Source information:
c-di-AMP riboswitch aptamer (ydaO/yuaA leader): a 162-nucleotide RNA from Ammoniphilus sp. CFH 90114.
RNA sequence: UUGUCUUUAACGCUGAAUCCUUUUUAAGGAGCGGGGGAACCAUUUGUGUUGGCAACACUUUUUUUGCUUCACAUGGGGUGAAUCUUGAUUCAUGUAUCAAGUAGGGUUACUCUCAUACCCGAAUCCGUCAGCUAACUUCGCAAGCGUACAGAGAGAGGCAAC
Numbered sequence: 001u002u003g004u005c006u007u008u009a010a011c012g013c014u015g016a017a018u019c020c021u022u023u024u025u026a027a028g029g030a031g032c033g034g035g036g037g038a039a040c041c042a043u044u045u046g047u048g049u050u051g052g053c054a055a056c057a058c059u060u061u062u063u064u065u066g067c068u069u070c071a072c073a074u075g076g077g078g079u080g081a082a083u084c085u086u087g088a089u090u091c092a093u094g095u096a097u098c099a100a101g102u103a104g105g106g107u108u109a110c111u112c113u114c115a116u117a118c119c120c121g122a123a124u125c126c127g128u129c130a131g132c133u134a135a136c137u138u139c140g141c142a143a144g145c146g147u148a149c150a151g152a153g154a155g156a157g158g159c160a161a162c
Stems, first nucleotide, its partner, number of pairs: 011146004018030003031141006041075002076126003084101004104120004
Dot-bracket structure: ..........((((...(((.......)))((((((....((...............................))(((.....((((..........))))..((((.........))))...))).........)))))).))))................

A search with the family's covariance model found it, with a score of 104 bits.